[Rfam]
RNA sequence: CAAUUACAGUCAGUCUGGGUGAGAGCGGAGGAACCAAUUUUUGGGGCUAAUCUCCAAUGCGAGAGAGACACCUUCCCGUCUUAGCCCGUCAGCUAACUUCGUCGGCAAUGGGAGGAACA
Number, nucleotide and partner (000 for none) at each position: 001c000002a000003a000004u024005u023006a000007c000008a000009g000010u000011c000012a000013g000014u000015c000016u000017g000018g000019g000020u000021g000022a000023g005024a004025g102026c101027g100028g099029a098030g097031g000032a000033a000034c000035c043036a042037a000038u000039u000040u000041u000042u036043g035044g087045g086046g085047c000048u000049a000050a000051u000052c063053u062054c061055c000056a000057a000058u000059g000060c000061g054062a053063g052064a000065g000066a081067g080068a079069c078070a000071c000072c000073u000074u000075c000076c000077c000078g069079u068080c067081u066082u000083a000084g000085c046086c045087c044088g000089u000090c000091a000092g000093c000094u000095a000096a000097c030098u029099u028100c027101g026102u025103c000104g000105g000106c000107a000108a000109u000110g000111g000112g000113a000114g000115g000116a000117a000118c000119a000
Shown here is a 119-nucleotide sequence from Allocoleopsis franciscana, a member of the family "c-di-AMP riboswitch aptamer (ydaO/yuaA leader)". Pairs were carried over by alignment from the consensus structure. Taxonomically the source falls in Allocoleopsis franciscana (Bacteria, Cyanophyceae, Coleofasciculales, Coleofasciculaceae). A search with the family's covariance model found it, with a score of 61 bits.